[Rfam]
RNA sequence: AACCACACUAUCGAUGGAUGGAUUCACCCACAAGAUGAUGUGACUGUUUCACCUAGGACGAGGACAUGGCAUCGUAUUAACAGCCAUCACACGAAAUUAAUAGGAUGCCACGUCCUCAUCUUAUAUGGAACAACCACAUCAUCUCACGGGUAAAUUCAUUCAUCAAUAGUGUGGUU
Numbered sequence: 001a002a003c004c005a006c007a008c009u010a011u012c013g014a015u016g017g018a019u020g021g022a023u024u025c026a027c028c029c030a031c032a033a034g035a036u037g038a039u040g041u042g043a044c045u046g047u048u049u050c051a052c053c054u055a056g057g058a059c060g061a062g063g064a065c066a067u068g069g070c071a072u073c074g075u076a077u078u079a080a081c082a083g084c085c086a087u088c089a090c091a092c093g094a095a096a097u098u099a100a101u102a103g104g105a106u107g108c109c110a111c112g113u114c115c116u117c118a119u120c121u122u123a124u125a126u127g128g129a130a131c132a133a134c135c136a137c138a139u140c141a142u143c144u145c146a147c148g149g150g151u152a153a154a155u156u157c158a159u160u161c162a163u164c165a166a167u168a169g170u171g172u173g174g175u176u
Stems, first nucleotide, its partner, number of pairs: 001176007009168003013164003017160003021156004026151003033144001035142005041136002045132004051126001054123002057120002063114003069108005075102005086097002

The family of this 176-nucleotide sequence from Oryza sativa is "MIR807 microRNA precursor family".
Gene Ontology terms of the family: miRNA-mediated post-transcriptional gene silencing and RISC complex.
Pairs were carried over by alignment from the consensus structure, which was predicted with WAR.
Lineage of the source: Eukaryota > Streptophytina > Liliopsida > Oryza > Oryza sativa.